[Rfam]
RNA sequence: UACUUUAUUUCUUUAAAUCACACACAUUCCGACACAUGUUCCGGGGUGCUUAGAAGUCAGCCUAAUUACGCUUUCUUGCUGAGUCGGACACAUGGGGGAUGUGGAGGCCUAAC
Numbered sequence: 001u002a003c004u005u006u007a008u009u010u011c012u013u014u015a016a017a018u019c020a021c022a023c024a025c026a027u028u029c030c031g032a033c034a035c036a037u038g039u040u041c042c043g044g045g046g047u048g049c050u051u052a053g054a055a056g057u058c059a060g061c062c063u064a065a066u067u068a069c070g071c072u073u074u075c076u077u078g079c080u081g082a083g084u085c086g087g088a089c090a091c092a093u094g095g096g097g098g099a100u101g102u103g104g105a106g107g108c109c110u111a112a113c
Stems, first nucleotide, its partner, number of pairs: 023103008035094005040088004048084005
RNA: t44 RNA
Organism: Vibrio gelatinilyticus